[Rfam]
RNA sequence: CGAUUGUGGUUGGUGACCAAAUUAUUAUUAGAAGGGUUAAUGGCUGGUGGGUUUGAACCACCAGCCU
Number, nucleotide and partner (000 for none) at each position: 001c000002g000003a000004u000005u000006g000007u000008g000009g000010u000011u000012g000013g000014u039015g038016a037017c036018c035019a000020a000021a000022u030023u000024a000025u000026u000027a000028u000029u000030a022031g000032a000033a000034g000035g018036g017037u016038u015039a014040a000041u000042g066043g065044c064045u063046g062047g061048u060049g059050g058051g000052u000053u000054u000055g000056a000057a000058c050059c049060a048061c047062c046063a045064g044065c043066c042067u000
Shown here is a 67-nucleotide RNA sequence, a member of the family "Pseudomonas sRNA P26". The family's consensus secondary structure was predicted with RNAalifold. By type it is a non-coding RNA gene. It scores 39 bits against the family's covariance model. Rfam's curators write: This small RNA (sRNA) was computationally identified in the genome of the opportunistic pathogen Pseudomonas aeruginosa and its expression verified by northern blot analysis. P26 is conserved across many Gammaproteobacteria species and appears to be consistently located between the DNA directed RNA polymerase (beta subunit) and 50S ribosomal protein L7/L12 genes.